mir-5928 microRNA precursor family: a 75-nucleotide sequence from Haemonchus placei.
NCBI's taxonomy places the organism under Eukaryota, Nematoda, Rhabditomorpha, Trichostrongylidae, Haemonchus.
Rfam 15.1 lists 1,672 matches to the family in 12 species.
A search with the family's covariance model found it, with a score of 66 bits.
The base pairs follow the family's consensus structure, which was predicted with RNAalifold.

RNA sequence: GGCACAAACUUGAAGUAGGGUAGUUAAGUGGGGUCAGAUGAUCCUUCUAAUCUACGCCACUUCAAAUUUGGGCCC
Numbered sequence: 001g002g003c004a005c006a007a008a009c010u011u012g013a014a015g016u017a018g019g020g021u022a023g024u025u026a027a028g029u030g031g032g033g034u035c036a037g038a039u040g041a042u043c044c045u046u047c048u049a050a051u052c053u054a055c056g057c058c059a060c061u062u063c064a065a066a067u068u069u070g071g072g073c074c075c
Stems, first nucleotide, its partner, number of pairs: 001074003005070004011064006018057001020055004025050001027048002030045001032043004
Dot-bracket structure: (((.((((..((((((.(.((((.(.((.(.((((....)))).).)).).)))).).))))))..)))).))).